[Rfam]
RNA: Cyano-1 RNA
RNA sequence: UUAGGUGUGAGGAGUGAUUUAUAAAGAAGCUCUUGGAGUCGAAACAAGGAAAGACGCCCGAGAGCUUUUUUUUGU
Numbered sequence: 001u002u003a004g005g006u007g008u009g010a011g012g013a014g015u016g017a018u019u020u021a022u023a024a025a026g027a028a029g030c031u032c033u034u035g036g037a038g039u040c041g042a043a044a045c046a047a048g049g050a051a052a053g054a055c056g057c058c059c060g061a062g063a064g065c066u067u068u069u070u071u072u073u074g075u
Stems, first nucleotide, its partner, number of pairs: 023071005030064002035059002038055003